[Rfam]
RNA: pan motif
Organism: Paenibacillus zeisoli
RNA sequence: GAGGUGGUAUUGGCUGGACCAAACUGCACUCCGUAAUUAAUUGGUUAUACUAAGUAAGAUUGAUCAUGAAUCUGGUUGCGUUGGAUUCUGCUCUGAGCCGAAGGGACCGAGACAGAAGG
Numbered sequence: 001g002a003g004g005u006g007g008u009a010u011u012g013g014c015u016g017g018a019c020c021a022a023a024c025u026g027c028a029c030u031c032c033g034u035a036a037u038u039a040a041u042u043g044g045u046u047a048u049a050c051u052a053a054g055u056a057a058g059a060u061u062g063a064u065c066a067u068g069a070a071u072c073u074g075g076u077u078g079c080g081u082u083g084g085a086u087u088c089u090g091c092u093c094u095g096a097g098c099c100g101a102a103g104g105g106a107c108c109g110a111g112a113c114a115g116a117a118g119g
Stems, first nucleotide, its partner, number of pairs: 001031003004027005010022004088115003091111003095107001098105002